Annotation: Rfam assigns this 95-nucleotide RNA from Medicago truncatula to the family "MIR5274 microRNA precursor family". Its family is annotated with RISC complex and miRNA-mediated post-transcriptional gene silencing in the Gene Ontology. Taxonomically the source falls in Medicago (Eukaryota, Streptophyta, Euphyllophyta, Fabaceae). Pairs were carried over by alignment from the consensus structure, which was predicted with RNAalifold. Rfam's curators put it in the seed alignment.
RNA sequence: GCGUUCUACAAUAUGACGGAGUGUAAAUGCCUAUGUAUCAAGCUAUGGUAAGUCUGAUACUUAGGCAUUUACACUCCGUCAUAUUGCGGAACGCA
Numbered sequence: 001g002c003g004u005u006c007u008a009c010a011a012u013a014u015g016a017c018g019g020a021g022u023g024u025a026a027a028u029g030c031c032u033a034u035g036u037a038u039c040a041a042g043c044u045a046u047g048g049u050a051a052g053u054c055u056g057a058u059a060c061u062u063a064g065g066c067a068u069u070u071a072c073a074c075u076c077c078g079u080c081a082u083a084u085u086g087c088g089g090a091a092c093g094c095a
Stems, first nucleotide, its partner, number of pairs: 001094006009086025035060006043052002